[Rfam]
RNA sequence: GUGUGUUUUAAUGACAACUUGUCUCUAAACUCUUCCGUAGAGGAGCUGGUUUGAUGCUCGGACAC
Numbered sequence: 001g002u003g004u005g006u007u008u009u010a011a012u013g014a015c016a017a018c019u020u021g022u023c024u025c026u027a028a029a030c031u032c033u034u035c036c037g038u039a040g041a042g043g044a045g046c047u048g049g050u051u052u053g054a055u056g057c058u059c060g061g062a063c064a065c
Stems, first nucleotide, its partner, number of pairs: 001065004016051004021046002024043002030040002
RNA: Selenocysteine insertion sequence 1
Organism: Neogobius melanostomus